Shown here is a 72-nucleotide sequence from Xenopus laevis, a member of the family "mir-551 microRNA precursor family". The family has 29 seed sequences and 1,097 matches in Rfam 15.1. The organism belongs to Xenopus, within Eukaryota.
RNA sequence: CGACCUUGGAAACCAAAGUUGGGUUGGGCCUGUUAGAUUCCAUAGGCGACCCAUACUUGGUUUCAAGGGUUA
Number, nucleotide and partner (000 for none) at each position: 001c000002g071003a070004c069005c068006u067007u066008g000009g064010a063011a062012a061013c060014c059015a000016a057017a000018g000019u000020u000021g052022g051023g050024u049025u000026g000027g000028g047029c046030c045031u044032g000033u000034u000035a000036g000037a000038u000039u000040c000041c000042a000043u000044a031045g030046g029047c028048g000049a024050c023051c022052c021053a000054u000055a000056c000057u016058u000059g014060g013061u012062u011063u010064c009065a000066a007067g006068g005069g004070u003071u002072a000